Rfam assigns this 517-nucleotide RNA sequence from Saccharopolyspora sp. ASAGF58 to the family "Saccharopolyspora sRNA 350". The organism belongs to Saccharopolyspora, within Bacteria. Rfam 15.1 lists 1,170 matches to the family in 705 species. Its family is annotated with regulation of secondary metabolite biosynthetic process in the Gene Ontology.

RNA sequence: UUGUAAGUGUGGUUCCAAGUCGCCUGAUCGGCGGCCAGCGCGUGUGCGCCGAAGAACUCGCCGUCGGCGAGCACUUUCAGCAUGGUGUCGUCGCCGUACUCGCCGGUGCCGAUCUGGUUUACCUUGCCGUGCGCGAUGAGCACGACCCGGUCCGCGAGCUCUCCGGCGGUCGCGAUCACCUGGCCCGGCUCGAACUCACGCUGCUCGAAGCGGUCGGCCAGCGCACCCAGCACCGAAUCGUCGUCGAAUCCGCGCAGCAGCGGCAGUUCGCCGAGUUCCUGCGGGAUGACCCGCACGUCGGCGCCGGUGUUGGUGAAGGUGAUCCGCCCGUCCCCGACGGCGUAGGUCAACCGCCGAUUGACCCGGUAAGUUCCCGCCGACACGUCCACCCACGGCAGCAUCCGCAGCAACCACCGCGAGGUGGUGCCCUGCAUCUGCGGCUGGGACUUGGUCGUCGUCGCCAGGUUCCGCGCCGCCGCCGUGCUAAGGCUUUGCGCGUUCUGCUCUUCGACGCCGA
Numbered sequence: 001u002u003g004u005a006a007g008u009g010u011g012g013u014u015c016c017a018a019g020u021c022g023c024c025u026g027a028u029c030g031g032c033g034g035c036c037a038g039c040g041c042g043u044g045u046g047c048g049c050c051g052a053a054g055a056a057c058u059c060g061c062c063g064u065c066g067g068c069g070a071g072c073a074c075u076u077u078c079a080g081c082a083u084g085g086u087g088u089c090g091u092c093g094c095c096g097u098a099c100u101c102g103c104c105g106g107u108g109c110c111g112a113u114c115u116g117g118u119u120u121a122c123c124u125u126g127c128c129g130u131g132c133g134c135g136a137u138g139a140g141c142a143c144g145a146c147c148c149g150g151u152c153c154g155c156g157a158g159c160u161c162u163c164c165g166g167c168g169g170u171c172g173c174g175a176u177c178a179c180c181u182g183g184c185c186c187g188g189c190u191c192g193a194a195c196u197c198a199c200g201c202u203g204c205u206c207g208a209a210g211c212g213g214u215c216g217g218c219c220a221g222c223g224c225a226c227c228c229a230g231c232a233c234c235g236a237a238u239c240g241u242c243g244u245c246g247a248a249u250c251c252g253c254g255c256a257g258c259a260g261c262g263g264c265a266g267u268u269c270g271c272c273g274a275g276u277u278c279c280u281g282c283g284g285g286a287u288g289a290c291c292c293g294c295a296c297g298u299c300g301g302c303g304c305c306g307g308u309g310u311u312g313g314u315g316a317a318g319g320u321g322a323u324c325c326g327c328c329c330g331u332c333c334c335c336g337a338c339g340g341c342g343u344a345g346g347u348c349a350a351c352c353g354c355c356g357a358u359u360g361a362c363c364c365g366g367u368a369a370g371u372u373c374c375c376g377c378c379g380a381c382a383c384g385u386c387c388a389c390c391c392a393c394g395g396c397a398g399c400a401u402c403c404g405c406a407g408c409a410a411c412c413a414c415c416g417c418g419a420g421g422u423g424g425u426g427c428c429c430u431g432c433a434u435c436u437g438c439g440g441c442u443g444g445g446a447c448u449u450g451g452u453c454g455u456c457g458u459c460g461c462c463a464g465g466u467u468c469c470g471c472g473c474c475g476c477c478g479c480c481g482u483g484c485u486a487a488g489g490c491u492u493u494g495c496g497c498g499u500u501c502u503g504c505u506c507u508u509c510g511a512c513g514c515c516g517a
Stems, first nucleotide, its partner, number of pairs: 007389003011385001014382001019327001022324001025322001027320001028316002035313007046304007054233001057230002060227001063224002065111004077102001079100002082097005117222003122217002127212001130209001131206001133204003138199001140197001144195001150191001154189002158185001160183001166173002240290006249283001251281002254278001256277003260271003329342004351379001353377002356374001360372003391431002394428004399423003403418003407415001437476004444469003447465006477516002480513003484510001486508003